RNA sequence: CAGCUUUAGCUGGCUGAAACCGGGCCAAAUUUCCUACUAAUGUAUUUGGUCCCCUUCAACCAGCUGUAGUUG
Numbered sequence: 001c002a003g004c005u006u007u008a009g010c011u012g013g014c015u016g017a018a019a020c021c022g023g024g025c026c027a028a029a030u031u032u033c034c035u036a037c038u039a040a041u042g043u044a045u046u047u048g049g050u051c052c053c054c055u056u057c058a059a060c061c062a063g064c065u066g067u068a069g070u071u072g
Stems, first nucleotide, its partner, number of pairs: 003070003008065006015058004022051002025049006

mir-133 microRNA precursor family: a 72-nucleotide RNA sequence from Orchesella cincta. Rfam links the family to the GO terms RISC complex and miRNA-mediated post-transcriptional gene silencing. mir-133 was first experimentally characterised in mouse and homologues have since been discovered in several other species. The mature sequence is excised from the 3' arm of the hairpin. The base pairs follow the family's consensus structure, which was predicted with PFOLD. The match comes from Rfam's covariance-model search (62 bits). Taxonomically the source falls in Orchesella (Eukaryota, Altocrustacea, Orchesellidae, Orchesellinae).